[Rfam]
RNA sequence: AGAGUUCAAAAGUUUGGGGCCAUAGCAGAAAUGCUUAAGACACAGCUGUGCCAGAUUCCAAGGAAUCUGUGAAUUCUGCU
Numbered sequence: 001a002g003a004g005u006u007c008a009a010a011a012g013u014u015u016g017g018g019g020c021c022a023u024a025g026c027a028g029a030a031a032u033g034c035u036u037a038a039g040a041c042a043c044a045g046c047u048g049u050g051c052c053a054g055a056u057u058c059c060a061a062g063g064a065a066u067c068u069g070u071g072a073a074u075u076c077u078g079c080u
Stems, first nucleotide, its partner, number of pairs: 013048001018047003024080007032042002052069007
Mammalian CPEB3 ribozyme: an 80-nucleotide RNA sequence from Crocodylus porosus.
The family's consensus secondary structure is taken from published work.
NCBI's taxonomy places the organism under Eukaryota, Metazoa, Craniata, Crocodylia, Crocodylus.
About the family: The mammalian CPEB3 ribozyme is a self cleaving RNA located in the second intron of the CPEB3 gene which belongs to a family of genes regulating messenger RNA polyadenylation. This ribozyme is highly conserved and found only in mammals. The CPEB3 ribozyme is structurally and biochemically related to the human hepatitis delta virus (HDV) ribozyme and the HDV ribozyme is proposed to have arisen from the human transcriptome. There is currently only one other known self cleaving ribozyme in mammals, the CoTC motif.